[Rfam]
RNA: FMN riboswitch aptamer (RFN element)
Organism: Herbiconiux flava
RNA sequence: AACGUGCUCCGGGGUCAGUGAGAUUCUGAACCGGCGGUGACAGUCCGCGAACCUCAGACGCUGCUCGCAGCGUCUGAGGUUGAUCCGGUGGAAUUCCGGAACCGACGGUGAUGGCGUGGUCGAACGACCCCGUCUAGUCCGGAUGAGAGGCGCACGGG
Numbered sequence: 001a002a003c004g005u006g007c008u009c010c011g012g013g014g015u016c017a018g019u020g021a022g023a024u025u026c027u028g029a030a031c032c033g034g035c036g037g038u039g040a041c042a043g044u045c046c047g048c049g050a051a052c053c054u055c056a057g058a059c060g061c062u063g064c065u066c067g068c069a070g071c072g073u074c075u076g077a078g079g080u081u082g083a084u085c086c087g088g089u090g091g092a093a094u095u096c097c098g099g100a101a102c103c104g105a106c107g108g109u110g111a112u113g114g115c116g117u118g119g120u121c122g123a124a125c126g127a128c129c130c131c132g133u134c135u136a137g138u139c140c141g142g143a144u145g146a147g148a149g150g151c152g153c154a155c156g157g158g
Stems, first nucleotide, its partner, number of pairs: 003156005009150002016028003032104002034048004043102002051080007084100005106141003
Dot-bracket structure: ..(((((.((.....(((.......)))...((((((.....[[))))..(((((((................)))))))...(((((.......)))))]])).(((..............................))).......)).)))))..